Rfam assigns this 588-nucleotide part of an RNA from Anolis carolinensis to the family "Eukaryotic large subunit ribosomal RNA". The family's consensus secondary structure is taken from published work. The organism belongs to Anolis, within Eukaryota. The sequence is in the family's curated seed alignment.
RNA sequence: UAGAACAACGUAGGUAAGGGAAGUCGGCAAGCCGGAUCCGUAACUUCGGGAUAAGGAUUGGCUCUGAGGGCUGGGCCGGUCGGGCUGGGGCGCGAAGCGGGGCUGGGCGCGCGCCGCGGCCGGAGGAGGCGCCCGCUCCCCCCCGUGCGCCCCGCGUGCCGGGGGGCGCGGCGGCGACUCUGGACGCGCGCCGGGCCCUUCCCGUGGAUCGCCCCAGCUGCGGCGGGCGCGGCCGGGCCCUCCCCCCUCGGCGGGGGACGGGUCGGGCCGGCGUCCCGCCUCGGCCGGCGCCUAGCAGCCGACUUAGAACUGGCGCGGACCAGGGGAAUCCGACUGUUUAAUUAAAACAAAGCAUCGCGAAGGCCCGCGGCGGGUGUUGACGCGAUGUGAUUUCUGCCCAGUGCUCUGAAUGUCAAAGUGAAGAAAUUCAAUGAAGCGCGGGUAAACGGCGGGAGUAACUAUGACUCUCUUAAGGUAGCCAAAUGCCUCGUCAUCUAAUUAGUGACGCGCAUGAAUGGAUGAACGAGAUUCCCACUGUCCCUACCUACUAUCUAGCGAAACCACAGCCAAGGGAACGGGCUUGGCGGA
Numbered sequence: 001u002a003g004a005a006c007a008a009c010g011u012a013g014g015u016a017a018g019g020g021a022a023g024u025c026g027g028c029a030a031g032c033c034g035g036a037u038c039c040g041u042a043a044c045u046u047c048g049g050g051a052u053a054a055g056g057a058u059u060g061g062c063u064c065u066g067a068g069g070g071c072u073g074g075g076c077c078g079g080u081c082g083g084g085c086u087g088g089g090g091c092g093c094g095a096a097g098c099g100g101g102g103c104u105g106g107g108c109g110c111g112c113g114c115c116g117c118g119g120c121c122g123g124a125g126g127a128g129g130c131g132c133c134c135g136c137u138c139c140c141c142c143c144c145g146u147g148c149g150c151c152c153c154g155c156g157u158g159c160c161g162g163g164g165g166g167c168g169c170g171g172c173g174g175c176g177a178c179u180c181u182g183g184a185c186g187c188g189c190g191c192c193g194g195g196c197c198c199u200u201c202c203c204g205u206g207g208a209u210c211g212c213c214c215c216a217g218c219u220g221c222g223g224c225g226g227g228c229g230c231g232g233c234c235g236g237g238c239c240c241u242c243c244c245c246c247c248u249c250g251g252c253g254g255g256g257g258a259c260g261g262g263u264c265g266g267g268c269c270g271g272c273g274u275c276c277c278g279c280c281u282c283g284g285c286c287g288g289c290g291c292c293u294a295g296c297a298g299c300c301g302a303c304u305u306a307g308a309a310c311u312g313g314c315g316c317g318g319a320c321c322a323g324g325g326g327a328a329u330c331c332g333a334c335u336g337u338u339u340a341a342u343u344a345a346a347a348c349a350a351a352g353c354a355u356c357g358c359g360a361a362g363g364c365c366c367g368c369g370g371c372g373g374g375u376g377u378u379g380a381c382g383c384g385a386u387g388u389g390a391u392u393u394c395u396g397c398c399c400a401g402u403g404c405u406c407u408g409a410a411u412g413u414c415a416a417a418g419u420g421a422a423g424a425a426a427u428u429c430a431a432u433g434a435a436g437c438g439c440g441g442g443u444a445a446a447c448g449g450c451g452g453g454a455g456u457a458a459c460u461a462u463g464a465c466u467c468u469c470u471u472a473a474g475g476u477a478g479c480c481a482a483a484u485g486c487c488u489c490g491u492c493a494u495c496u497a498a499u500u501a502g503u504g505a506c507g508c509g510c511a512u513g514a515a516u517g518g519a520u521g522a523a524c525g526a527g528a529u530u531c532c533c534a535c536u537g538u539c540c541c542u543a544c545c546u547a548c549u550a551u552c553u554a555g556c557g558a559a560a561c562c563a564c565a566g567c568c569a570a571g572g573g574a575a576c577g578g579g580c581u582u583g584g585c586g587g588a
Stems, first nucleotide, its partner, number of pairs: 001554004010548007018540003035059005044049001060311002063308006069300005075289009084218003088214004097205004105198004110193002115188004120183006128175001130173003312316001324533007331525002335349003352388008361377001363375004392519003396450003401447002403443004408439001411438003419430004451469006470474001490506005567584005